[Rfam]
The record is an 84-nucleotide RNA sequence from Gallus gallus, which matches "mir-3524 microRNA precursor family" in Rfam. Taxonomically the source falls in Gallus (Eukaryota, Opisthokonta, Chordata, Saurischia). Rfam links the family to the GO terms RISC complex and miRNA-mediated post-transcriptional gene silencing.
RNA sequence: GUCUCUUUCAGCCUCAGCCAUUCUGCGAUUCUGUGAUAACUUUUAGAAUCAGAGAAUCAUAGAAUGGUCCGGGUUGGUAGGGAC
Number, nucleotide and partner (000 for none) at each position: 001g084002u083003c082004u000005c080006u079007u000008u000009c076010a075011g000012c073013c072014u000015c000016a000017g000018c067019c066020a065021u064022u063023c062024u061025g000026c000027g058028a057029u056030u055031c054032u053033g000034u051035g050036a049037u048038a000039a000040c000041u000042u000043u000044u000045a000046g000047a000048a037049u036050c035051a034052g000053a032054g031055a030056a029057u028058c027059a000060u000061a024062g023063a022064a021065u020066g019067g018068u000069c000070c000071g000072g013073g012074u000075u010076g009077g000078u000079a006080g005081g000082g003083a002084c001